[Rfam]
RNA sequence: GCUCUGGUCGGAAACCAGAGUCGUUAGAAGGAG
Numbered sequence: 001g002c003u004c005u006g007g008u009c010g011g012a013a014a015c016c017a018g019a020g021u022c023g024u025u026a027g028a029a030g031g032a033g
Stems, first nucleotide, its partner, number of pairs: 001021008